[Rfam]
RNA: mir-2774 microRNA precursor family
Organism: Bombyx mori
RNA sequence: ACUACAUUCGGACCGUCGGUCUACCGAGUAAUAUCAUCCGUUCGGUGGAAAAUCUUCUCUUUGUUGU
Numbered sequence: 001a002c003u004a005c006a007u008u009c010g011g012a013c014c015g016u017c018g019g020u021c022u023a024c025c026g027a028g029u030a031a032u033a034u035c036a037u038c039c040g041u042u043c044g045g046u047g048g049a050a051a052a053u054c055u056u057c058u059c060u061u062u063g064u065u066g067u
Base pairs, nucleotide, nucleotide: 004064005063006062010058011057012056015053016052020049021048022047023046024045025044026043027042028041029040